[Rfam]
RNA: mir-36 microRNA precursor family
Organism: Caenorhabditis remanei
RNA sequence: UAUUCCCUGCUGGCUUGGACCUUUGCUGGUUUCCCUCGGUUAUAUUUCUAAAAAAACUAUCACCGGGUGAACAUUGGUGCAGGUCCAAUCCGCCUAC
Numbered sequence: 001u002a003u004u005c006c007c008u009g010c011u012g013g014c015u016u017g018g019a020c021c022u023u024u025g026c027u028g029g030u031u032u033c034c035c036u037c038g039g040u041u042a043u044a045u046u047u048c049u050a051a052a053a054a055a056a057c058u059a060u061c062a063c064c065g066g067g068u069g070a071a072c073a074u075u076g077g078u079g080c081a082g083g084u085c086c087a088a089u090c091c092g093c094c095u096a097c
Stems, first nucleotide, its partner, number of pairs: 016087007024079007031070002034067002037065001039063002042060003